Rfam assigns this 85-nucleotide RNA from Maylandia zebra to the family "mir-15 microRNA precursor family". This family represents the related mir-15a and mir-15b sequences. In humans miR-15a and miR-16 are clustered within 0.5 kb at 13q14. This region has been shown to be deleted in more than half of B cell chronic lymphocytic leukaemias (CLL). On this family, see Lagos-Quintana et al., Science 2001: "Identification of novel genes coding for small expressed RNAs". The family's consensus secondary structure was predicted with RNAalifold. The family is grouped with related families in Rfam's "mir-15 clan".
[Rfam]
RNA sequence: CCAGGGUGCACUCUAGCAGCACAUCAUGUUUUGCAGAUGUGCUGAAUCGCUUCAAAUCAUCAUGUGCUGCCACCGUGAGCCCUGG
Dot-bracket structure: ((((((.......(.(((((((((.(((.((((.((.............)).)))).))).))))))))).).......))))))
Numbered sequence: 001c002c003a004g005g006g007u008g009c010a011c012u013c014u015a016g017c018a019g020c021a022c023a024u025c026a027u028g029u030u031u032u033g034c035a036g037a038u039g040u041g042c043u044g045a046a047u048c049g050c051u052u053c054a055a056a057u058c059a060u061c062a063u064g065u066g067c068u069g070c071c072a073c074c075g076u077g078a079g080c081c082c083u084g085g
Stems, first nucleotide, its partner, number of pairs: 001085006014072001016070009026060003030056004035051002